[Rfam]
RNA sequence: AAUAAUAAAUAAAACUAACUUCGUAUAACUCCAAUUAUAUGGUUUGGGGGUAUCUACCAGGAACCAAUAAUUCCUGAUUACGAAGAGAAUACAUUUAUGU
Numbered sequence: 001a002a003u004a005a006u007a008a009a010u011a012a013a014a015c016u017a018a019c020u021u022c023g024u025a026u027a028a029c030u031c032c033a034a035u036u037a038u039a040u041g042g043u044u045u046g047g048g049g050g051u052a053u054c055u056a057c058c059a060g061g062a063a064c065c066a067a068u069a070a071u072u073c074c075u076g077a078u079u080a081c082g083a084a085g086a087g088a089a090u091a092c093a094u095u096u097a098u099g100u
Stems, first nucleotide, its partner, number of pairs: 019085007029049006058076006
Notes: Purine riboswitch aptamer: a 100-nucleotide RNA sequence from Clostridium frigidicarnis. The family's consensus secondary structure is taken from published work. Gene Ontology term of the family: purine nucleobase biosynthetic process. A search with the family's covariance model found it, with a score of 80 bits.